[Rfam]
RNA sequence: UGCUUGAGUAUAGGUGGUGGUCUGGUAAGUGUGUCGCUUAUGAGAUCACGCCUAUAUUCGCUUUG
Number, nucleotide and partner (000 for none) at each position: 001u000002g000003c000004u000005u000006g059007a058008g057009u056010a055011u054012a053013g052014g051015u050016g049017g000018u048019g047020g046021u045022c044023u043024g000025g041026u040027a039028a038029g037030u036031g000032u000033g000034u000035c000036g030037c029038u028039u027040a026041u025042g000043a023044g022045a021046u020047c019048a018049c016050g015051c014052c013053u012054a011055u010056a009057u008058u007059c006060g000061c000062u000063u000064u000065g000
RNA: mir-5885 microRNA precursor family